[Rfam]
RNA sequence: UCACCAUAUUUGCUGAAUUCCACGUAUCGUGGAAGCGGGGGAACCAAUACGCGGGCGUCUGUCGACGCUUGCCGGGGUGAAUCCGAAAGGAACAGGCCGGGCUGCCGAAGCCGCGUUUCUUUCCUUUUGGUAGGGCUACUCUCUGGCCCGAAUCCGUCAGCUAACCCCGUAAGCGCACAAAGGAGAGAUG
Numbered sequence: 001u002c003a004c005c006a007u008a009u010u011u012g013c014u015g016a017a018u019u020c021c022a023c024g025u026a027u028c029g030u031g032g033a034a035g036c037g038g039g040g041g042a043a044c045c046a047a048u049a050c051g052c053g054g055g056c057g058u059c060u061g062u063c064g065a066c067g068c069u070u071g072c073c074g075g076g077g078u079g080a081a082u083c084c085g086a087a088a089g090g091a092a093c094a095g096g097c098c099g100g101g102c103u104g105c106c107g108a109a110g111c112c113g114c115g116u117u118u119c120u121u122u123c124c125u126u127u128u129g130g131u132a133g134g135g136c137u138a139c140u141c142u143c144u145g146g147c148c149c150g151a152a153u154c155c156g157u158c159a160g161c162u163a164a165c166c167c168c169g170u171a172a173g174c175g176c177a178c179a180a181a182g183g184a185g186a187g188a189u190g
Base pairs, nucleotide, nucleotide: 011175012174013173014172018034019033020032021031022030023029035170036169037168038167039166040165045074075155076154077153083130084129085128086127087126088125089124090123091122092121133149134148135147136146
The record is a 190-nucleotide sequence from Paenibacillus sp. D9, which matches "c-di-AMP riboswitch aptamer (ydaO/yuaA leader)" in Rfam. Taxonomically the source falls in Paenibacillus (Bacteria, Bacillota, Caryophanales, Paenibacillaceae).